[Rfam]
RNA sequence: AAUAGCCAAGGGAAUGAAGUUCUCCCUGCGCUGUUAAAGCCGAACCGCUUAUUAAGCUGAUGACUUCUGCGAUUAU
Numbered sequence: 001a002a003u004a005g006c007c008a009a010g011g012g013a014a015u016g017a018a019g020u021u022c023u024c025c026c027u028g029c030g031c032u033g034u035u036a037a038a039g040c041c042g043a044a045c046c047g048c049u050u051a052u053u054a055a056g057c058u059g060a061u062g063a064c065u066u067c068u069g070c071g072a073u074u075a076u
Stems, first nucleotide, its partner, number of pairs: 010026004016067006047057003

A member of the RNA family "Fluoride riboswitch aptamer (crcB RNA motif)" from Lacrimispora saccharolytica, 76 nucleotides long. It scores 51 bits against the family's covariance model. NCBI's taxonomy places the organism under Bacteria, Clostridia, Lachnospirales, Lacrimispora, Lacrimispora saccharolytica.